[Rfam]
Nucleotides: 132
Base pairs, nucleotide, nucleotide: 012116013115014114019033020032021031022030023029036111037110038109039108040107045052046051053097054096055095061072062071063070064069075091076090077089078088
Number, partner (000 for none) and nucleotide at each position: 001000g002000a003000u004000g005000c006000a007000a008000c009000g010000a011000u012116g013115c014114u015000g016000a017000a018000u019033u020032c021031u022030u023029g024000c025000a026000c027000u028000g029023c030022a031021a032020g033019a034000u035000a036111c037110g038109g039108g040107g041000g042000a043000a044000c045052c046051a047000u048000u049000c050000a051046u052045g053097g054096g055095g056000u057000g058000a059000a060000u061072u062071c063070g064069a065000u066000c067000a068000g069064u070063c071062g072061a073000u074000a075091g076090g077089g078088c079000u080000a081000a082000a083000c084000u085000u086000c087000g088078g089077u090076c091075c092000g093000a094000a095055u096054c097053c098000g099000u100000c101000a102000g103000c104000u105000a106000a107040c108039c109038u110037c111036g112000g113000a114014a115013g116012c117000u118000u119000a120000g121000a122000a123000g124000g125000a126000a127000a128000u129000c130000a131000g132000a